[Rfam]
RNA sequence: UGAAAUGAAAUCAGCAUUUGGACAUGUGAUUUCACGUUGAUUUCAUCUCAUA
Dot-bracket structure: (((.(((((((((((.((((......)))....).))))))))))).)))..
RNA: MIR1886 microRNA precursor family